[Rfam]
RNA sequence: ACCUGCACUUCGCUCGUCCCGCUCGCGUGUCGAUGAGUGGUGCCGAUGGAUGGUGUGAGGGAGA
Numbered sequence: 001a002c003c004u005g006c007a008c009u010u011c012g013c014u015c016g017u018c019c020c021g022c023u024c025g026c027g028u029g030u031c032g033a034u035g036a037g038u039g040g041u042g043c044c045g046a047u048g049g050a051u052g053g054u055g056u057g058a059g060g061g062a063g064a
Stems, first nucleotide, its partner, number of pairs: 002060003005056004014046003018042001020039005
Notes
Trypanosomatid snoRNA TB8Cs2H1: a 64-nucleotide sequence from Leishmania major. It is one of the family's seed sequences. Its family is annotated with nucleolus and RNA processing in the Gene Ontology.